[Rfam]
RNA sequence: UGCAUCACCUCGGGGUGCUCUGACAGGGGCUGAGAUGCGGCGACGCGAACCCGUUGAACCUGAACCGGUUAACACCGGCGGAGGGAAGGGAUUGGACAUCCUC
Dot-bracket structure: .......(((((((.((((((....)))))......(((....))))..)))).....(((...((((......))))...)))..)))..............
RNA: TPP riboswitch aptamer (THI element)